[Rfam]
RNA sequence: GCACUUGUAGCUCAGUGGAUAGAGCACCGGUUUCCGGAGCCGGGUUGUCGGGGGUUCGAUUCCCUCCAGGUGCA
Numbered sequence: 001g002c003a004c005u006u007g008u009a010g011c012u013c014a015g016u017g018g019a020u021a022g023a024g025c026a027c028c029g030g031u032u033u034c035c036g037g038a039g040c041c042g043g044g045u046u047g048u049c050g051g052g053g054g055u056u057c058g059a060u061u062c063c064c065u066c067c068a069g070g071u072g073c074a
Base pairs, nucleotide, nucleotide: 001073002072003071004070005069006068007067010025011024012023013022027043028042029041030040031039050066051065052064053063054062